[Rfam]
RNA sequence: ACCGAGCUCGGUUGCGUGUGCUUGUAACCCAAGUGGGGGCAUUAAGGUGGUGUGGAUGUUUGGUGCGGACUCUGGGCUUGGGCCUGUGGUGUGUCUUUGCUGGCCCUGCCCGUUCCAAGUUGGUAGUGGCCUGUGCGGCCCCAGCAAAAGCUCGGGCUUCACUGGACCUGAAGUGGCAGGAAUAGUGUGAGGUUGGCUUUACAGAGUAGCGAUCACUGCCCGCUUCCAACGGUGGAAGGAUAACAGCCCGCUACAUCAUGGGCCCGAUCUGGACCCCGAGGAGCCGGCGGCGAGGAUCG
Numbered sequence: 001a002c003c004g005a006g007c008u009c010g011g012u013u014g015c016g017u018g019u020g021c022u023u024g025u026a027a028c029c030c031a032a033g034u035g036g037g038g039g040c041a042u043u044a045a046g047g048u049g050g051u052g053u054g055g056a057u058g059u060u061u062g063g064u065g066c067g068g069a070c071u072c073u074g075g076g077c078u079u080g081g082g083c084c085u086g087u088g089g090u091g092u093g094u095c096u097u098u099g100c101u102g103g104c105c106c107u108g109c110c111c112g113u114u115c116c117a118a119g120u121u122g123g124u125a126g127u128g129g130c131c132u133g134u135g136c137g138g139c140c141c142c143a144g145c146a147a148a149a150g151c152u153c154g155g156g157c158u159u160c161a162c163u164g165g166a167c168c169u170g171a172a173g174u175g176g177c178a179g180g181a182a183u184a185g186u187g188u189g190a191g192g193u194u195g196g197c198u199u200u201a202c203a204g205a206g207u208a209g210c211g212a213u214c215a216c217u218g219c220c221c222g223c224u225u226c227c228a229a230c231g232g233u234g235g236a237a238g239g240a241u242a243a244c245a246g247c248c249c250g251c252u253a254c255a256u257c258a259u260g261g262g263c264c265c266g267a268u269c270u271g272g273a274c275c276c277c278g279a280g281g282a283g284c285c286g287g288c289g290g291c292g293a294g295g296a297u298c299g
Base pairs, nucleotide, nucleotide: 002039003038004023005022006021007020009018010017028037029036030035051299052298057293058291059290060289061286062285063284064283066281070280071279072278074276075275076274078272079271080265081264082263083262084261085260086259087258089257091256092255093254094253101250102249103248106246107245108244110239111238113237114236115235116234117233119230120229121228122227123226125224126223127222128167130165131164133162134161135160137158138157139156140155141154143152144151145150168173175220176219177218178217179216184213186211187210188209193204194203195202
The family of this 299-nucleotide RNA from Setaria viridis is "Plant signal recognition particle RNA". The family has 63 seed sequences and 4,988 matches in Rfam 15.1. Rfam links the family to the GO terms SRP-dependent cotranslational protein targeting to membrane, signal sequence recognition and signal recognition particle, endoplasmic reticulum targeting. Its Rfam clan is "SRP clan". On this family, see Wild et al., Curr Opin Struct Biol 2002: "Towards the structure of the mammalian signal recognition particle". Rfam classes the family as a non-coding RNA gene.